About this RNA
Rfam assigns this 242-nucleotide sequence from Truepera sp. to the family "Group II catalytic intron D1-D4-6". On this family, see Bonen and Vogel, Trends Genet 2001: "The ins and outs of group II introns". The source organism's lineage runs through Bacteria, Deinococcota, Deinococci, Trueperales and Truepera.

RNA sequence: AGAGUCAUACGUCAAAGGCCUAGCCAGCUACGGCGGCCCCGAGUCAUGCGUGCACAUUCGCGAGGGUGUGGGCGAAGCGUCGACAGGGGUACGCGCGGGCCGGGUAUCGAGCCGCGUAAUCGAUGACCCCGGACAUCGGUCCGUGGGUGUUCGGGGUGCCGAGGCUGUGGAGAUAAGCCGAAGGCCACACCGGUGCAGCCGCUUUGGCGAGGCUGCACUGGACCCCGCGCGGUCAGAGACCC
Numbered sequence: 001a002g003a004g005u006c007a008u009a010c011g012u013c014a015a016a017g018g019c020c021u022a023g024c025c026a027g028c029u030a031c032g033g034c035g036g037c038c039c040c041g042a043g044u045c046a047u048g049c050g051u052g053c054a055c056a057u058u059c060g061c062g063a064g065g066g067u068g069u070g071g072g073c074g075a076a077g078c079g080u081c082g083a084c085a086g087g088g089g090u091a092c093g094c095g096c097g098g099g100c101c102g103g104g105u106a107u108c109g110a111g112c113c114g115c116g117u118a119a120u121c122g123a124u125g126a127c128c129c130c131g132g133a134c135a136u137c138g139g140u141c142c143g144u145g146g147g148u149g150u151u152c153g154g155g156g157u158g159c160c161g162a163g164g165c166u167g168u169g170g171a172g173a174u175a176a177g178c179c180g181a182a183g184g185c186c187a188c189a190c191c192g193g194u195g196c197a198g199c200c201g202c203u204u205u206g207g208c209g210a211g212g213c214u215g216c217a218c219u220g221g222a223c224c225c226c227g228c229g230c231g232g233u234c235a236g237a238g239a240c241c242c
Base pairs, nucleotide, nucleotide: 010035011034012033013032017029018028019027021210023208024207037089038088039087040086043084044083045082047079048078049074050073051072053070054069055068056067057066058065059064108236109234111233112232113231114230115229116228152227153226154225155224156223157222158185159184160183163179164178165177166176190221191220192219193218194217195216196215197214198213199212200211
Dot-bracket structure: .........((((...(((.[.[[..)))..)))).((((..(((.(((((.(((((((....))))))).)))...))..))).))))..................((.((((((...................................(((((((((..((((.........))))...)))....(((((((((((......]].])))))))))))))))))))))))).)......